[Rfam]
RNA sequence: AAUUGCUUAUAUGACUGACGGAAGUGGAAUGAACCACAGGGAGUAUAAGCGUAGGAAGCCGACCGUCUGGGCAAGUAUG
Numbered sequence: 001a002a003u004u005g006c007u008u009a010u011a012u013g014a015c016u017g018a019c020g021g022a023a024g025u026g027g028a029a030u031g032a033a034c035c036a037c038a039g040g041g042a043g044u045a046u047a048a049g050c051g052u053a054g055g056a057a058g059c060c061g062a063c064c065g066u067c068u069g070g071g072c073a074a075g076u077a078u079g
Stems, first nucleotide, its partner, number of pairs: 004051009015040002017067005024037004058072003
RNA: ZMP/ZTP riboswitch aptamer (pfl RNA motif)